[Rfam]
RNA: Plant signal recognition particle RNA
RNA sequence: GCCGAGUUGAGUAGCGUCAACUUGUAACCUAGGUAGGGGCAUUAGAUUGGUGGGAUAAUGACUCGGCUUUCCUGGCAGGGCCUGUCUGUGCAAUUACUUGGCCCACCCGUUCCAAGUUGAGAGAUGGGCCUUGUAAUUUGAGCGAAGGCUUGGGUUACUUGGUUCCUAAAGUGGAGGGUACCGCGUGAGGCUGGUUUCACAGAGCAGCGAAGACCUCACGCUCUCAACAGUGGAAGGAUAACGGGCCGGUGAACUAUUGGUUCACAUUGCUUGGGUGAGUUGGGCGCCUUACACCACCCCUUCUU
Numbered sequence: 001g002c003c004g005a006g007u008u009g010a011g012u013a014g015c016g017u018c019a020a021c022u023u024g025u026a027a028c029c030u031a032g033g034u035a036g037g038g039g040c041a042u043u044a045g046a047u048u049g050g051u052g053g054g055a056u057a058a059u060g061a062c063u064c065g066g067c068u069u070u071c072c073u074g075g076c077a078g079g080g081c082c083u084g085u086c087u088g089u090g091c092a093a094u095u096a097c098u099u100g101g102c103c104c105a106c107c108c109g110u111u112c113c114a115a116g117u118u119g120a121g122a123g124a125u126g127g128g129c130c131u132u133g134u135a136a137u138u139u140g141a142g143c144g145a146a147g148g149c150u151u152g153g154g155u156u157a158c159u160u161g162g163u164u165c166c167u168a169a170a171g172u173g174g175a176g177g178g179u180a181c182c183g184c185g186u187g188a189g190g191c192u193g194g195u196u197u198c199a200c201a202g203a204g205c206a207g208c209g210a211a212g213a214c215c216u217c218a219c220g221c222u223c224u225c226a227a228c229a230g231u232g233g234a235a236g237g238a239u240a241a242c243g244g245g246c247c248g249g250u251g252a253a254c255u256a257u258u259g260g261u262u263c264a265c266a267u268u269g270c271u272u273g274g275g276u277g278a279g280u281u282g283g284g285c286g287c288c289u290u291a292c293a294c295c296a297c298c299c300c301u302u303c304u305u
Base pairs, nucleotide, nucleotide: 001040002039003038004023005022006021007020008019009018010017028037029036030035044304045303046302049298050297051296052295053294056291057290060287062284063283064282065281066280067279068277070275071274072273074271075270076269077268078263079262080261081260082259084257085256088254089253093250098249099248100247101246102245103244104243107237108236110235111234112233113232114231116228117227118226119225120224121223122222123221126165127164128163129162130161133158134157135156136155137154138153139152140151141150142149143148166171174217175216176215177214184209185208186207191202192201193200